This 126-nucleotide RNA from Muntiacus reevesi belongs to the Rfam family "Small nucleolar RNA SNORA33". Rfam links the family to the GO terms RNA processing and nucleolus. About the family: ACA33 is a member of the H/ACA class of snoRNA that guide the sites of modification of uridines to pseudouridines.
RNA sequence: UGGCCCACAUCAAAAAAUUUUAAAAAUUAUUGUUAAAAAAAUGUAGAAAAUGCUGGCAAUAGGAAAGCCGUGUUACGAGCCUUAAAGACAUUGAAGUCAUUAAGGUUCCUAAAAAUGGCUACAAGG
Numbered sequence: 001u002g003g004c005c006c007a008c009a010u011c012a013a014a015a016a017a018u019u020u021u022a023a024a025a026a027u028u029a030u031u032g033u034u035a036a037a038a039a040a041a042u043g044u045a046g047a048a049a050a051u052g053c054u055g056g057c058a059a060u061a062g063g064a065a066a067g068c069c070g071u072g073u074u075a076c077g078a079g080c081c082u083u084a085a086a087g088a089c090a091u092u093g094a095a096g097u098c099a100u101u102a103a104g105g106u107u108c109c110u111a112a113a114a115a116u117g118g119c120u121a122c123a124a125g126g
Base pairs, nucleotide, nucleotide: 001055002054003053067119068118069117070116079106080105081104082103083102084101085100087098088097089096